Shown here is a 127-nucleotide RNA sequence from Lentibacillus salicampi, a member of the family "Bacillaceae-1 RNA". It scores 63 bits against the family's covariance model. Taxonomically the source falls in Lentibacillus (Bacteria, Bacillota, Caryophanales, Bacillaceae).
[Rfam]
RNA sequence: UUUAAAGGAAGGCCGAUUAAGAACGCCACGUCCUUGAAAAAGGAAAGCACUUUUUCUGCGUGCGAUGUAUCGCUGACGCAGCUUUCCUUAUCCUGUGGCAACAUCGGCAUGACCUACAUCGUGUAGG
Numbered sequence: 001u002u003u004a005a006a007g008g009a010a011g012g013c014c015g016a017u018u019a020a021g022a023a024c025g026c027c028a029c030g031u032c033c034u035u036g037a038a039a040a041a042g043g044a045a046a047g048c049a050c051u052u053u054u055u056c057u058g059c060g061u062g063c064g065a066u067g068u069a070u071c072g073c074u075g076a077c078g079c080a081g082c083u084u085u086c087c088u089u090a091u092c093c094u095g096u097g098g099c100a101a102c103a104u105c106g107g108c109a110u111g112a113c114c115u116a117c118a119u120c121g122u123g124u125a126g127g
Stems, first nucleotide, its partner, number of pairs: 012108006025099005113127005